RNA sequence: AAAUUGCACACGCUAAAUUUCCAGGAAUGGAAAACGGGGGACCCAAUCAAAUGGGGUGAAUCCCGAUCGACCGAUGAGCGCUCAUCGGUCGAUCGGGUAGGGCGACUCUACCGCCCGAAUCCGACAGCUAACCUCGUCAGCGUCGUUUAGAGGGAGG
Dot-bracket structure: ..........((((...((((((....))))))((((((....((......))(((.....((((((((((((((((....))))))))))))))))..((((.........))))...))).........)))))).))))...............
This 157-nucleotide sequence from Paenibacillus phyllosphaerae belongs to the Rfam family "c-di-AMP riboswitch aptamer (ydaO/yuaA leader)". The match comes from Rfam's covariance-model search (97 bits). NCBI's taxonomy places the organism under Bacteria, Bacillati, Bacillota, Bacilli, Paenibacillus.